[Rfam]
The record is a 187-nucleotide RNA sequence from Faecalibacterium sp. CAG:74, which matches "Lysine riboswitch aptamer" in Rfam. Pairs were carried over by alignment from the consensus structure, which is taken from published work. Lineage of the source: Bacteria > Bacillati > Eubacteriales > Oscillospiraceae > Faecalibacterium. It scores 75 bits against the family's covariance model.

RNA sequence: AACGGAAUCAGAGGUGCGCACGCAUCGUGUACCGCGGCGGAGGAUGGCUUCCGCAGAGGCCGCGGGAAGGGGUGGUGCGCCGAAAGGCAGGGCAAACGAAGCCGCAGACCCUGUGCUUGGGCGCGGGCCGGACAGGUUCGUGACUGUCAUCGGGCAAAAUAAUCCCCGGCGGAGCGCUGAUUCACUG
Numbered sequence: 001a002a003c004g005g006a007a008u009c010a011g012a013g014g015u016g017c018g019c020a021c022g023c024a025u026c027g028u029g030u031a032c033c034g035c036g037g038c039g040g041a042g043g044a045u046g047g048c049u050u051c052c053g054c055a056g057a058g059g060c061c062g063c064g065g066g067a068a069g070g071g072g073u074g075g076u077g078c079g080c081c082g083a084a085a086g087g088c089a090g091g092g093c094a095a096a097c098g099a100a101g102c103c104g105c106a107g108a109c110c111c112u113g114u115g116c117u118u119g120g121g122c123g124c125g126g127g128c129c130g131g132a133c134a135g136g137u138u139c140g141u142g143a144c145u146g147u148c149a150u151c152g153g154g155c156a157a158a159a160u161a162a163u164c165c166c167c168g169g170c171g172g173a174g175c176g177c178u179g180a181u182u183c184a185c186u187g
Stems, first nucleotide, its partner, number of pairs: 006182006016080006032065007084118003087114006119145002122142008147172002150169004